[Rfam]
RNA sequence: GCAUGGCUGAAUACUGUGUUCUUUUUGUCAGUAGUUUACACAGCCAGACACCAUGCAAAAGAAAAAUCUUCCCUUUUAAAGUAGCUAUGAUGGUAUGCCAAGUGUCUUUAUAGCAUAUCAUUACGAAAAAUGGAUACAAGU
Number, nucleotide and partner (000 for none) at each position: 001g056002c055003a054004u053005g052006g051007c000008u000009g000010a000011a000012u000013a000014c043015u042016g041017u040018g039019u038020u000021c000022u000023u000024u000025u000026u000027g000028u000029c000030a000031g000032u000033a000034g000035u000036u000037u000038a019039c018040a017041c016042a015043g014044c000045c000046a000047g000048a000049c000050a000051c006052c005053a004054u003055g002056c001057a000058a000059a000060a000061g000062a000063a000064a000065a000066a000067u000068c000069u134070u133071c132072c000073c000074u128075u127076u126077u125078a000079a000080a000081g000082u000083a000084g000085c000086u000087a000088u123089g122090a121091u120092g119093g118094u117095a116096u115097g114098c113099c000100a111101a000102g000103u000104g000105u000106c000107u000108u000109u000110a000111u100112a000113g098114c097115a096116u095117a094118u093119c092120a091121u090122u089123a088124c000125g077126a076127a075128a074129a000130a000131u000132g071133g070134a069135u000136a000137c000138a000139a000140g000141u000
RNA: Small nucleolar RNA SNORA15